This 61-nucleotide RNA from Pristionchus pacificus belongs to the Rfam family "mir-8364 microRNA precursor family". The organism belongs to Pristionchus, within Eukaryota.

RNA sequence: UCUUCAUUUCACGCACUCUCUCGCAUCUCUGACUGAUGAUAGAGUGUGGGAAAUGAAGAGA
Numbered sequence: 001u002c003u004u005c006a007u008u009u010c011a012c013g014c015a016c017u018c019u020c021u022c023g024c025a026u027c028u029c030u031g032a033c034u035g036a037u038g039a040u041a042g043a044g045u046g047u048g049g050g051a052a053a054u055g056a057a058g059a060g061a
Stems, first nucleotide, its partner, number of pairs: 001059007010050001012048006019041001021039002
Dot-bracket structure: (((((((..(.((((((.(.((...............)).).)))))).)..)))))))..